[Rfam]
RNA sequence: ACUAACUAAAAUAAAUGGGGCGAGUUCACCUGGCCCUCACGAUUGUCGGGAAGCAUGGACAGACUAUACGCUGAGUGGCCGUUCCCCACUCAGCGCGAAAAAUGAGCUUCUCAACAAUCUUCGAGGGUAGCGCUGCUACCCUUUUUUUUUCUGGAGUAG
Numbered sequence: 001a002c003u004a005a006c007u008a009a010a011a012u013a014a015a016u017g018g019g020g021c022g023a024g025u026u027c028a029c030c031u032g033g034c035c036c037u038c039a040c041g042a043u044u045g046u047c048g049g050g051a052a053g054c055a056u057g058g059a060c061a062g063a064c065u066a067u068a069c070g071c072u073g074a075g076u077g078g079c080c081g082u083u084c085c086c087c088a089c090u091c092a093g094c095g096c097g098a099a100a101a102a103u104g105a106g107c108u109u110c111u112c113a114a115c116a117a118u119c120u121u122c123g124a125g126g127g128u129a130g131c132g133c134u135g136c137u138a139c140c141c142u143u144u145u146u147u148u149u150u151c152u153g154g155a156g157u158a159g
Stems, first nucleotide, its partner, number of pairs: 012158002018036004022030001037126002040123002042118005048112002060097001070094009
Dot-bracket structure: ...........((....(((((.......)..))))((.(((((((.((..........(.........(((((((((.......)))))))))..).............)).)))))...)).))..............................)).